[Rfam]
Description
The record is a 119-nucleotide RNA sequence from Manihot esculenta, which matches "MIR408 microRNA precursor family" in Rfam. It scores 105 bits against the family's covariance model. For this family Rfam cites "High throughput approaches reveal splicing of primary microRNA transcripts and tissue specific expression of mature microRNAs in Vitis vinifera" (Mica et al., BMC Genomics, 2009). The family's consensus secondary structure was predicted with WAR.
RNA sequence: AGAAAGAGACGGACAAAGACUGGGAACAGGCAGAGCAUGGGUGGAACUAUUAACACAAGUAUCUGUUUUAGCACCACCCAUGCACUGCCUCUUCCCUGGCUUGCGGGUCUUCUUUUUCU
Numbered sequence: 001a002g003a004a005a006g007a008g009a010c011g012g013a014c015a016a017a018g019a020c021u022g023g024g025a026a027c028a029g030g031c032a033g034a035g036c037a038u039g040g041g042u043g044g045a046a047c048u049a050u051u052a053a054c055a056c057a058a059g060u061a062u063c064u065g066u067u068u069u070a071g072c073a074c075c076a077c078c079c080a081u082g083c084a085c086u087g088c089c090u091c092u093u094c095c096c097u098g099g100c101u102u103g104c105g106g107g108u109c110u111u112c113u114u115u116u117u118c119u
Stems, first nucleotide, its partner, number of pairs: 016102003020098001022096005028090006035083006044074001